[Rfam]
RNA sequence: CGGCGAAGCCUCCUGUCCGUUAUACAUGGGGGCACUCGGCCAUGCUGUGGGUCUAUUGGAAAUGGACCUUAGACGCUGCGUCGUCAAUAGCAUGGUGUGAGGGUGGGUUAGAUGCCCA
Number, nucleotide and partner (000 for none) at each position: 001c019002g018003g017004c000005g000006a000007a000008g033009c032010c031011u030012c029013c028014u000015g000016u000017c003018c002019g001020u000021u000022a000023u000024a000025c000026a000027u000028g013029g012030g011031g010032g009033c008034a000035c101036u100037c099038g098039g096040c095041c094042a093043u092044g091045c090046u089047g000048u000049g069050g068051g067052u066053c065054u064055a063056u062057u000058g000059g000060a000061a000062a056063u055064g054065g053066a052067c051068c050069u049070u000071a000072g085073a084074c083075g082076c000077u000078g000079c000080g000081u000082c075083g074084u073085c072086a000087a000088u000089a046090g045091c044092a043093u042094g041095g040096u039097g000098u038099g037100a036101g035102g000103g000104u118105g117106g116107g115108u114109u000110a000111g000112a000113u000114g108115c107116c106117c105118a104
A member of the RNA family "epsC RNA" from Neobacillus mesonae, 118 nucleotides long. A search with the family's covariance model found it, with a score of 107 bits. The organism belongs to Neobacillus, within Bacteria. It is annotated as a cis-regulatory element.